[Rfam]
RNA sequence: UAUAUAAUUAUAGCGCCCGGACUCAUUAUUAAUUAUCAAUUGUAAAUUGUGUUUAAUUCUGAGUUGACGAGGAGAGGGCUGAUCGAUAUUCGGCGGAUACCCUCAGGUUAUAGCUAUUAGCCUUAAACUAAAUUCUUAAAACUUAGAAGUAAUUCUAAGUACAAAGGAAUUUAGGAAUAGCACU
Numbered sequence: 001u002a003u004a005u006a007a008u009u010a011u012a013g014c015g016c017c018c019g020g021a022c023u024c025a026u027u028a029u030u031a032a033u034u035a036u037c038a039a040u041u042g043u044a045a046a047u048u049g050u051g052u053u054u055a056a057u058u059c060u061g062a063g064u065u066g067a068c069g070a071g072g073a074g075a076g077g078g079c080u081g082a083u084c085g086a087u088a089u090u091c092g093g094c095g096g097a098u099a100c101c102c103u104c105a106g107g108u109u110a111u112a113g114c115u116a117u118u119a120g121c122c123u124u125a126a127a128c129u130a131a132a133u134u135c136u137u138a139a140a141a142c143u144u145a146g147a148a149g150u151a152a153u154u155c156u157a158a159g160u161a162c163a164a165a166g167g168a169a170u171u172u173a174g175g176a177a178u179a180g181c182a183c184u
Stems, first nucleotide, its partner, number of pairs: 020065006029056004074104005083093004105123006128174007142159007

Annotation
Rfam assigns this 184-nucleotide RNA from Orenia marismortui to the family "glmS glucosamine-6-phosphate activated ribozyme aptamer". Rfam's curators write: This entry contains a glucosamine-6-phosphate activated ribozyme that is found in the mRNA for GlmS. GlmS is an enzyme that uses fructose-6-phosphate and glutamine to generate glucosamine-6-phosphate. The ribozyme catalyses self cleavage of the glmS mRNA that is thought to regulate GlmS activity. The organism belongs to Orenia, within Bacteria. The family's RNA type in Rfam is riboswitch.